[Rfam]
RNA: TPP riboswitch aptamer (THI element)
RNA sequence: GGCCCCACCAAGGGGAGCCUCGACAAGGGGCUGAGAGACCGCUGGCGAAAGCAGCGCGGUGACCCUUCGAACCUGAUCCGGAUAAUGCCGGCGAAGGGAUGGGACCGAAGACGCCU
Numbered sequence: 001g002g003c004c005c006c007a008c009c010a011a012g013g014g015g016a017g018c019c020u021c022g023a024c025a026a027g028g029g030g031c032u033g034a035g036a037g038a039c040c041g042c043u044g045g046c047g048a049a050a051g052c053a054g055c056g057c058g059g060u061g062a063c064c065c066u067u068c069g070a071a072c073c074u075g076a077u078c079c080g081g082a083u084a085a086u087g088c089c090g091g092c093g094a095a096g097g098g099a100u101g102g103g104a105c106c107g108a109a110g111a112c113g114c115c116u
Stems, first nucleotide, its partner, number of pairs: 008102003011066004017031005038060005072097003078091004